[Rfam]
RNA sequence: GCCGGGUGUGGUGGUGCAUGCCUAUAGUCCCAGCUACUUAGGAGGCUGAGGCAGGAGGAUCACUUGAGGCCAGGAGUUCUGGGCUGCAGUGCACUAUGUUGCCUGGGCAUCUGCACUAAGUUCAGCAUCAAUAUGAUGACCUCCCGGGAGCAGGGGACUACCAGAUUGCCUAAGAAGGGGUAAACUGGCCAAGGUUGGAAACGGAGCAGGUCAAAACUCCCGUGGUGAUCAGUAGCGGGAUCGUGCCUGUGAAUAGCCACUGUACUCCAGCCUGGGCAACACAGCAAGACCCCAUCUCUA
Numbered sequence: 001g002c003c004g005g006g007u008g009u010g011g012u013g014g015u016g017c018a019u020g021c022c023u024a025u026a027g028u029c030c031c032a033g034c035u036a037c038u039u040a041g042g043a044g045g046c047u048g049a050g051g052c053a054g055g056a057g058g059a060u061c062a063c064u065u066g067a068g069g070c071c072a073g074g075a076g077u078u079c080u081g082g083g084c085u086g087c088a089g090u091g092c093a094c095u096a097u098g099u100u101g102c103c104u105g106g107g108c109a110u111c112u113g114c115a116c117u118a119a120g121u122u123c124a125g126c127a128u129c130a131a132u133a134u135g136a137u138g139a140c141c142u143c144c145c146g147g148g149a150g151c152a153g154g155g156g157a158c159u160a161c162c163a164g165a166u167u168g169c170c171u172a173a174g175a176a177g178g179g180g181u182a183a184a185c186u187g188g189c190c191a192a193g194g195u196u197g198g199a200a201a202c203g204g205a206g207c208a209g210g211u212c213a214a215a216a217c218u219c220c221c222g223u224g225g226u227g228a229u230c231a232g233u234a235g236c237g238g239g240a241u242c243g244u245g246c247c248u249g250u251g252a253a254u255a256g257c258c259a260c261u262g263u264a265c266u267c268c269a270g271c272c273u274g275g276g277c278a279a280c281a282c283a284g285c286a287a288g289a290c291c292c293c294a295u296c297u298c299u300a
Base pairs, nucleotide, nucleotide: 001046002045003044004023005022006021007020008019009018010017028043029042030041048298049297050296051295054292055291060287063284064283068277070275071274072273073272074271079270080269081268082267083266085264086263087262088261089260090259091258094256095255096254097253099251104249105248106247107246108245109244110243111239112238114237116235117234118233120230122228123227124226126224127223128222129168130167131166132165134163135162137160138159141156142155143154144153146151170174177220178219179218180217181216186213187212188211189210190209195204196203197202
Source information: This 300-nucleotide RNA sequence from Cercocebus atys belongs to the Rfam family "Metazoan signal recognition particle RNA". NCBI's taxonomy places the organism under Eukaryota, Teleostomi, Dipnotetrapodomorpha, Mammalia, Cercocebus. Rfam describes the family as follows. The signal recognition particle (SRP) is a universally conserved ribonucleoprotein. It is involved in the co-translational targeting of proteins to membranes. The eukaryotic SRP consists of a 300-nucleotide 7S RNA and six proteins: SRPs 72, 68, 54, 19, 14, and 9. The family has 91 seed sequences and 383,523 matches in Rfam 15.1. Pairs were carried over by alignment from the consensus structure, which is taken from published work.